[Rfam]
RNA sequence: GCAGAUCCAAGGCCGCAAGGCUCGCCACAAACAGAAGGCUCUUCCCUUCUUUCCUCCCGAGCGGGCUAAGGUCUGAGUCUUCAAGGCUUCUCCAAUCGACUCUAGCGGGGUCCGAUCUGUAAUGGUCGAGCGACAAACAAGGAAUUGAUCCUCCCCCAGCGUUAUUCCCGGAGAUCCUUUUGUUCAGUGUUUAGACUUCGUGUCUUGUGCUGCACAGGAGGGGAGGGUGCUGUCGGAGGCCUUGAGAUUUGUUGUGGAGCCCGGGCGGUUCACCAUACCCGCGCCUUGGUGACCCGACCAUCACCCUAUCGCAUUAUCCAUCCUUUGCGGGUGGGCAGAGUUCUCGGCAAGCUCUGCAGCUCACCUGACAAUCCAGGCGGGGCAGUAUUCGGUCAUAGCCAAAACCCAAAUGGACCAAUUUGAGCUAGGCGAAGUUGUCGUAGGCCACGACCACGUAUGUCGCUGUGCAUAGUUGGCCCGGGUUUUGUCCCAUGGCUGGGAAACGCUGUCACACCUCUGGAGUCGCCGUCCGGAGCUCGGGUUGUCAGGUGGGAAUCUAGUGUAUGAGGGGUGAGGGACACCAGGGCGGGCAUGUGUGUUCCGCCCUUGAGUCCAAUUUGCGGCUCACGCACUCACUUCCCCUGGGAAGGCGUGAAACUCGAUUCAGACUACUCUGGGUCUGC
Numbered sequence: 001g002c003a004g005a006u007c008c009a010a011g012g013c014c015g016c017a018a019g020g021c022u023c024g025c026c027a028c029a030a031a032c033a034g035a036a037g038g039c040u041c042u043u044c045c046c047u048u049c050u051u052u053c054c055u056c057c058c059g060a061g062c063g064g065g066c067u068a069a070g071g072u073c074u075g076a077g078u079c080u081u082c083a084a085g086g087c088u089u090c091u092c093c094a095a096u097c098g099a100c101u102c103u104a105g106c107g108g109g110g111u112c113c114g115a116u117c118u119g120u121a122a123u124g125g126u127c128g129a130g131c132g133a134c135a136a137a138c139a140a141g142g143a144a145u146u147g148a149u150c151c152u153c154c155c156c157c158a159g160c161g162u163u164a165u166u167c168c169c170g171g172a173g174a175u176c177c178u179u180u181u182g183u184u185c186a187g188u189g190u191u192u193a194g195a196c197u198u199c200g201u202g203u204c205u206u207g208u209g210c211u212g213c214a215c216a217g218g219a220g221g222g223g224a225g226g227g228u229g230c231u232g233u234c235g236g237a238g239g240c241c242u243u244g245a246g247a248u249u250u251g252u253u254g255u256g257g258a259g260c261c262c263g264g265g266c267g268g269u270u271c272a273c274c275a276u277a278c279c280c281g282c283g284c285c286u287u288g289g290u291g292a293c294c295c296g297a298c299c300a301u302c303a304c305c306c307u308a309u310c311g312c313a314u315u316a317u318c319c320a321u322c323c324u325u326u327g328c329g330g331g332u333g334g335g336c337a338g339a340g341u342u343c344u345c346g347g348c349a350a351g352c353u354c355u356g357c358a359g360c361u362c363a364c365c366u367g368a369c370a371a372u373c374c375a376g377g378c379g380g381g382g383c384a385g386u387a388u389u390c391g392g393u394c395a396u397a398g399c400c401a402a403a404a405c406c407c408a409a410a411u412g413g414a415c416c417a418a419u420u421u422g423a424g425c426u427a428g429g430c431g432a433a434g435u436u437g438u439c440g441u442a443g444g445c446c447a448c449g450a451c452c453a454c455g456u457a458u459g460u461c462g463c464u465g466u467g468c469a470u471a472g473u474u475g476g477c478c479c480g481g482g483u484u485u486u487g488u489c490c491c492a493u494g495g496c497u498g499g500g501a502a503a504c505g506c507u508g509u510c511a512c513a514c515c516u517c518u519g520g521a522g523u524c525g526c527c528g529u530c531c532g533g534a535g536c537u538c539g540g541g542u543u544g545u546c547a548g549g550u551g552g553g554a555a556u557c558u559a560g561u562g563u564a565u566g567a568g569g570g571g572u573g574a575g576g577g578a579c580a581c582c583a584g585g586g587c588g589g590g591c592a593u594g595u596g597u598g599u600u601c602c603g604c605c606c607u608u609g610a611g612u613c614c615a616a617u618u619u620g621c622g623g624c625u626c627a628c629g630c631a632c633u634c635a636c637u638u639c640c641c642c643u644g645g646g647a648a649g650g651c652g653u654g655a656a657a658c659u660c661g662a663u664u665c666a667g668a669c670u671a672c673u674c675u676g677g678g679u680c681u682g683c
Stems, first nucleotide, its partner, number of pairs: 001683004007677003012624007020062005034049005073667005085261004098112005113128005130255007152239001625655006

A member of the RNA family "Nuclear RNase P" from Russula ochroleuca, 683 nucleotides long. Ribonuclease P (RNase P) is a ubiquitous endoribonuclease, found in archaea, bacteria and eukarya as well as chloroplasts and mitochondria. Its best characterised activity is the generation of mature 5'-ends of tRNAs by cleaving the 5'-leader elements of precursor-tRNAs. Taxonomically the source falls in Russula (Eukaryota, Basidiomycota, Agaricomycetes, Russulales). The literature on the family includes a 1998 paper in Annu Rev Biochem by Frank and Pace, "Ribonuclease P: unity and diversity in a tRNA processing ribozyme".